[Rfam]
RNA sequence: CGGGUGACCCUGGGUUAGGGAACUCGGCAAAUUGGCCCCGUAACUUCGGGAGAAGGGGUGCCUGCGGUCCUUGGCUUAAACCAGGGAUCGCAGGUCGCAGUGGCCAGGGGGACCUGACUGUUUAACAAAAACAUAGGUCCCCGCGAGCCCGUAAGGGUGAGUACGGGGGCUGAAUCCUGGCCACUGGCGGUACGUUAAACCCGGGUACAACCGGGCUAAGCGCCGCUGAAGGCCGGGGGUAACUCUGACCCUCUUAAGGUAGCCAAAUGCCUUGCCGGGUAAGUUCCGGCGUGCAUGAAUGGAUCAACGAGGUCCCCACUGUCCCAACCCAGGUCCCGGCGAACCUGCCUCCAGGUGAACAGUCCUGGGA
Numbered sequence: 001c002g003g004g005u006g007a008c009c010c011u012g013g014g015u016u017a018g019g020g021a022a023c024u025c026g027g028c029a030a031a032u033u034g035g036c037c038c039c040g041u042a043a044c045u046u047c048g049g050g051a052g053a054a055g056g057g058g059u060g061c062c063u064g065c066g067g068u069c070c071u072u073g074g075c076u077u078a079a080a081c082c083a084g085g086g087a088u089c090g091c092a093g094g095u096c097g098c099a100g101u102g103g104c105c106a107g108g109g110g111g112a113c114c115u116g117a118c119u120g121u122u123u124a125a126c127a128a129a130a131a132c133a134u135a136g137g138u139c140c141c142c143g144c145g146a147g148c149c150c151g152u153a154a155g156g157g158u159g160a161g162u163a164c165g166g167g168g169g170c171u172g173a174a175u176c177c178u179g180g181c182c183a184c185u186g187g188c189g190g191u192a193c194g195u196u197a198a199a200c201c202c203g204g205g206u207a208c209a210a211c212c213g214g215g216c217u218a219a220g221c222g223c224c225g226c227u228g229a230a231g232g233c234c235g236g237g238g239g240u241a242a243c244u245c246u247g248a249c250c251c252u253c254u255u256a257a258g259g260u261a262g263c264c265a266a267a268u269g270c271c272u273u274g275c276c277g278g279g280u281a282a283g284u285u286c287c288g289g290c291g292u293g294c295a296u297g298a299a300u301g302g303a304u305c306a307a308c309g310a311g312g313u314c315c316c317c318a319c320u321g322u323c324c325c326a327a328c329c330c331a332g333g334u335c336c337c338g339g340c341g342a343a344c345c346u347g348c349c350u351c352c353a354g355g356u357g358a359a360c361a362g363u364c365c366u367g368g369g370a
Stems, first nucleotide, its partner, number of pairs: 001338004009333008018324003035059005044049001060095015096100001108317007115309002119133003136171008144161001147158004174304004179234003184231002186227005193222003200215005235253006254258001274290006351368005